[Rfam]
RNA: Mammalian CPEB3 ribozyme
RNA sequence: ACAAGUUUGAGGCCAUAGCACAAGUGCUUAUAGCACAGCCAUGUCAGAUUCCAAUGAAUCUGUGAAUUCUGCU
Numbered sequence: 001a002c003a004a005g006u007u008u009g010a011g012g013c014c015a016u017a018g019c020a021c022a023a024g025u026g027c028u029u030a031u032a033g034c035a036c037a038g039c040c041a042u043g044u045c046a047g048a049u050u051c052c053a054a055u056g057a058a059u060c061u062g063u064g065a066a067u068u069c070u071g072c073u
Stems, first nucleotide, its partner, number of pairs: 008041001011040003017073004022068002024036003045062007
Dot-bracket structure: .......[..[[[...((((.(((((.......))).]]]]...(((((((....)))))))....)).))))